[Rfam]
RNA sequence: GGCGGUGGCCGCGACUGGCGAGGGUGGAGGACCACCGGGGAGCGGCCGUGCAGUUCGGAGGAGCGCCGACCGCCUGGGCGCCUCAC
Numbered sequence: 001g002g003c004g005g006u007g008g009c010c011g012c013g014a015c016u017g018g019c020g021a022g023g024g025u026g027g028a029g030g031a032c033c034a035c036c037g038g039g040g041a042g043c044g045g046c047c048g049u050g051c052a053g054u055u056c057g058g059a060g061g062a063g064c065g066c067c068g069a070c071c072g073c074c075u076g077g078g079c080g081c082c083u084c085a086c
Stems, first nucleotide, its partner, number of pairs: 005049008015039002017074004024035004063081005

The family of this 86-nucleotide RNA sequence from Streptomyces sp. DvalAA-14 is "ZMP/ZTP riboswitch aptamer (pfl RNA motif)".
Taxonomically the source falls in Streptomyces (Bacteria, Actinomycetota, Kitasatosporales, Streptomycetaceae).
The base pairs follow the family's consensus structure, which is taken from published work.
It scores 53 bits against the family's covariance model.
Rfam 15.1 lists 3,295 matches to the family in 2,545 species.